RNA sequence: UCCUACUGAGGAAACAUGCACAUGUCUUGCCUCCUGUCCUAGUCCCCGAGCCAGUAAAGGGGACCCCACAGGGGCUGGCUGGGGAAGAAGAGGAGUUUUUUCUAGAAGGAACUGUCGAAGGGAU
Numbered sequence: 001u002c003c004u005a006c007u008g009a010g011g012a013a014a015c016a017u018g019c020a021c022a023u024g025u026c027u028u029g030c031c032u033c034c035u036g037u038c039c040u041a042g043u044c045c046c047c048g049a050g051c052c053a054g055u056a057a058a059g060g061g062g063a064c065c066c067c068a069c070a071g072g073g074g075c076u077g078g079c080u081g082g083g084g085a086a087g088a089a090g091a092g093g094a095g096u097u098u099u100u101u102c103u104a105g106a107a108g109g110a111a112c113u114g115u116c117g118a119a120g121g122g123a124u
Stems, first nucleotide, its partner, number of pairs: 001123004
Dot-bracket structure: ((((...................................................................................................................)))).
Small nucleolar RNA SNORD22: a 124-nucleotide RNA sequence from Myotis lucifugus. Taxonomically the source falls in Myotis (Eukaryota, Gnathostomata, Euteleostomi, Dipnotetrapodomorpha).